The record is a 306-nucleotide sequence from Methanocella arvoryzae, which matches "Archaeal RNase P" in Rfam. Ribonuclease P (RNase P) is a ubiquitous endoribonuclease, found in archaea, bacteria and eukarya as well as chloroplasts and mitochondria. Its Rfam clan is "RNaseP clan". For this family Rfam cites "Ribonuclease P: unity and diversity in a tRNA processing ribozyme" (Frank and Pace, Annu Rev Biochem, 1998).
RNA sequence: GAGAGAGGAGGGACGGCUGCCGCUCUUUUAGAGUGAGGAAAGUCCCCCCACCGCCUGGACACACAAAUGCCUGUAAAGGGCAUACGGCGAGAGUCGUGGCAAUGUCACAGCAACGGAACGGCCGCGGGCCUGUGCGAUGAUCUGGAGACAGUGAGGUCGCCCGCAGCGCCGAUGAAACGGUCAAUCCUUGUGGGUGCAAGCUAAGAGGGAUUACCAGGGAGUCCAGCCCUGUCCCCGGUUACAGCGCGUAGAUGAAUGCCGUCGGCCUUAGGGCCAUGAACAGAAGGGGGCUUACUAUCCUCACUC
Number, nucleotide and partner (000 for none) at each position: 001g306002a305003g304004a000005g302006a301007g300008g299009a298010g296011g295012g263013a262014c261015g260016g259017c258018u000019g000020c000021c035022g034023c033024u032025c031026u000027u000028u000029u000030a000031g025032a024033g023034u022035g021036a000037g000038g000039a000040a293041a292042g291043u000044c290045c289046c288047c287048c286049c196050a195051c194052c193053g000054c000055c226056u225057g224058g223059a222060c000061a000062c192063a191064c190065a189066a188067a083068u082069g081070c080071c079072u000073g000074u000075a000076a000077a000078g000079g071080g070081c069082a068083u067084a097085c096086g095087g094088c093089g000090a000091g000092a000093g088094u087095c086096g085097u084098g187099g186100c000101a000102a000103u183104g182105u000106c180107a000108c000109a000110g000111c000112a000113a000114c000115g000116g000117a000118a000119c171120g170121g169122c166123c000124g164125c163126g162127g161128g160129c159130c000131u000132g000133u000134g000135c000136g000137a000138u000139g000140a000141u000142c151143u150144g000145g000146a000147g000148a000149c000150a143151g142152u000153g000154a000155g000156g000157u000158c000159g129160c128161c127162c126163g125164c124165a000166g122167c000168g000169c121170c120171g119172a000173u000174g000175a000176a000177a000178c000179g000180g106181u000182c104183a103184a000185u000186c099187c098188u066189u065190g064191u063192g062193g052194g051195u050196g049197c000198a000199a000200g245201c244202u243203a000204a000205g000206a000207g235208g234209g233210a232211u231212u000213a000214c000215c000216a000217g000218g000219g000220a000221g000222u059223c058224c057225a056226g055227c000228c000229c000230u000231g211232u210233c209234c208235c207236c000237g000238g000239u000240u000241a000242c000243a202244g201245c200246g000247c000248g000249u000250a000251g000252a000253u000254g000255a000256a000257u000258g017259c016260c015261g014262u013263c012264g000265g000266c000267c000268u000269u000270a000271g000272g000273g000274c000275c000276a000277u000278g000279a000280a000281c000282a000283g000284a000285a000286g048287g047288g046289g045290g044291c042292u041293u040294a000295c011296u010297a000298u009299c008300c007301u006302c005303a000304c003305u002306c001